Background: The record is a 138-nucleotide RNA from Phenylobacterium soli, which matches "Caulobacter sRNA CC3664" in Rfam. A reference for the family is Landt et al. (2008), "Small non-coding RNAs in Caulobacter crescentus", Mol Microbiol. Taxonomically the source falls in Phenylobacterium (Bacteria, Pseudomonadati, Caulobacterales, Caulobacteraceae).

RNA sequence: GUCGGUUGAUCGGUGCUGUCGGUCCUGGAUCCUGAACAGCCCCCCCAGCCCCCCUGGAUCGGUAGGCCGGUCGACCGACGCUAGAUUUCUCCUCCCCCAGCGCGAGCCCGCGCGGUCCCUCUCCAGGCCGCGCGGGCU
Numbered sequence: 001g002u003c004g005g006u007u008g009a010u011c012g013g014u015g016c017u018g019u020c021g022g023u024c025c026u027g028g029a030u031c032c033u034g035a036a037c038a039g040c041c042c043c044c045c046c047a048g049c050c051c052c053c054c055u056g057g058a059u060c061g062g063u064a065g066g067c068c069g070g071u072c073g074a075c076c077g078a079c080g081c082u083a084g085a086u087u088u089c090u091c092c093u094c095c096c097c098c099a100g101c102g103c104g105a106g107c108c109c110g111c112g113c114g115g116u117c118c119c120u121c122u123c124c125a126g127g128c129c130g131c132g133c134g135g136g137c138u
Stems, first nucleotide, its partner, number of pairs: 001079013016065009027053002032048003087104001089102001105138011